[Rfam]
RNA: mir-10 microRNA precursor family
RNA sequence: CCAUGAAUACCCUGUAGAACCGAAUGUGUGUGGAGCUGCCUCAUCACAGAUUGGGUUCUAGGGGAGUCCAUGGG
Numbered sequence: 001c002c003a004u005g006a007a008u009a010c011c012c013u014g015u016a017g018a019a020c021c022g023a024a025u026g027u028g029u030g031u032g033g034a035g036c037u038g039c040c041u042c043a044u045c046a047c048a049g050a051u052u053g054g055g056u057u058c059u060a061g062g063g064g065a066g067u068c069c070a071u072g073g074g
Base pairs, nucleotide, nucleotide: 002072003071004070005069007067010064011063012062016059017058018057019056020055021054023052024051025050027048028047029046030045